Rfam assigns this 65-nucleotide RNA from Aliivibrio salmonicida to the family "Fluoride riboswitch aptamer (crcB RNA motif)". The base pairs follow the family's consensus structure, which is taken from published work. It is one of the family's seed sequences. The source organism's lineage runs through Bacteria, Gammaproteobacteria, Vibrionaceae, Aliivibrio and Aliivibrio salmonicida.
RNA sequence: GGCGUACAAGGUGAUGGGGUGCCACCUACUUAACCGCCAAUUUGGCUGAUGACUCCUACAGUAAA
Number, nucleotide and partner (000 for none) at each position: 001g000002g000003c000004g000005u000006a000007c000008a000009a000010g026011g025012u024013g023014a000015u000016g056017g055018g054019g053020u052021g000022c000023c013024a012025c011026c010027u000028a000029c000030u000031u000032a000033a000034c000035c000036g046037c045038c044039a000040a000041u000042u000043u000044g038045g037046c036047u000048g000049a000050u000051g000052a020053c019054u018055c017056c016057u000058a000059c000060a000061g000062u000063a000064a000065a000